Record summary
U12 minor spliceosomal RNA: a 150-nucleotide sequence from Rattus norvegicus. Its family is annotated with mRNA branch site recognition, pre-mRNA branch point binding and U12 snRNP in the Gene Ontology. For this family Rfam cites "Pre-mRNA splicing: the discovery of a new spliceosome doubles the challenge" (Tarn and Steitz, Trends Biochem Sci, 1997). The family's RNA type in Rfam is spliceosomal small nuclear RNA. The family is grouped with related families in Rfam's "U2 clan". A search with the family's covariance model found it, with a score of 101 bits.
[Rfam]
RNA sequence: GUGCCUUAAACUAUGAGUAAGGAAAAUAAUGAUUUCAGGUACCGCCUGAGUCCUUACCGCUUAUGUUAGAUGAAUUUUUGAGCAAGUAAAGGUUGCUAUCUAAGGUGACCUGCCCACUUUGUGGGAUGCCUAGGUAAUGCAAUCUGCCCA
Numbered sequence: 001g002u003g004c005c006u007u008a009a010a011c012u013a014u015g016a017g018u019a020a021g022g023a024a025a026a027u028a029a030u031g032a033u034u035u036c037a038g039g040u041a042c043c044g045c046c047u048g049a050g051u052c053c054u055u056a057c058c059g060c061u062u063a064u065g066u067u068a069g070a071u072g073a074a075u076u077u078u079u080g081a082g083c084a085a086g087u088a089a090a091g092g093u094u095g096c097u098a099u100c101u102a103a104g105g106u107g108a109c110c111u112g113c114c115c116a117c118u119u120u121g122u123g124g125g126a127u128g129c130c131u132a133g134g135u136a137a138u139g140c141a142a143u144c145u146g147c148c149c150a
Stems, first nucleotide, its partner, number of pairs: 004022005031052005038045001053069002056066002086147002090145007099134002103131005109125005